RNA sequence: CAGAAAUGGGGGUUCCUUCCAGCCCAAAACAUGGUACUUAAUAAUCUUAUACUUAAACCUCUCUGUUUUGGACUGAAGGGAGCUCCUAAUUCUU
Dot-bracket structure: ......((((((((((((..((.(((((......................................))))).))..))))))))))))......

This 94-nucleotide sequence from Macleaya cordata belongs to the Rfam family "MIR319 microRNA precursor family". The family has 11 seed sequences and 168 matches in Rfam 15.1.